[Rfam]
RNA sequence: UGAGAGCAAAGAUCCGAAAGGUUGUUAUCGAAUUUAGAUAAAUUUUCGGGGAGGGAAUGUCGGUUCAAGAAACUAGACGGCAA
Numbered sequence: 001u002g003a004g005a006g007c008a009a010a011g012a013u014c015c016g017a018a019a020g021g022u023u024g025u026u027a028u029c030g031a032a033u034u035u036a037g038a039u040a041a042a043u044u045u046u047c048g049g050g051g052a053g054g055g056a057a058u059g060u061c062g063g064u065u066c067a068a069g070a071a072a073c074u075a076g077a078c079g080g081c082a083a
Base pairs, nucleotide, nucleotide: 014049015048016047018046019045020044021043025041026040027039028038029037058082059081060080061079065077066076

Source information:
A member of the RNA family "S10-Clostridia ribosomal protein leader" from Candidatus Parepulonipiscium sp. PG-Nuni2H_MBin01, 83 nucleotides long. Taxonomically the source falls in Candidatus Parepulonipiscium (Bacteria, Bacillota, Clostridia, Lachnospirales).